[Rfam]
RNA sequence: GGGUGAGGUAGAGGCGCGGUUACUAAGAGUAUCUAUACUAAAGCCGGAAGCUGAUGAUGUAUAGAGAAAGGAGUCGCCGCCGAAGUGUCAGAUAUCCAAAAUCUGAUGCUGGGACUACAUCGAAUAGGUGUAGGACUGUCAUCAUAGUAUUAGCCCGGUGCUAUGAUGUUGUGCUAUCUCACUU
Dot-bracket structure: .....((((((....(((((.(((.......(((((((....................)))))))......))).)))))...((((((((((.(...).))))))))))((..(((((((.....)))))))..))..((((((((((.........)))))))))).....)))))).....
Numbered sequence: 001g002g003g004u005g006a007g008g009u010a011g012a013g014g015c016g017c018g019g020u021u022a023c024u025a026a027g028a029g030u031a032u033c034u035a036u037a038c039u040a041a042a043g044c045c046g047g048a049a050g051c052u053g054a055u056g057a058u059g060u061a062u063a064g065a066g067a068a069a070g071g072a073g074u075c076g077c078c079g080c081c082g083a084a085g086u087g088u089c090a091g092a093u094a095u096c097c098a099a100a101a102u103c104u105g106a107u108g109c110u111g112g113g114a115c116u117a118c119a120u121c122g123a124a125u126a127g128g129u130g131u132a133g134g135a136c137u138g139u140c141a142u143c144a145u146a147g148u149a150u151u152a153g154c155c156c157g158g159u160g161c162u163a164u165g166a167u168g169u170u171g172u173g174c175u176a177u178c179u180c181a182c183u184u
Stems, first nucleotide, its partner, number of pairs: 006179006016080005022074003032065007084110010095099001111137002115133007140168010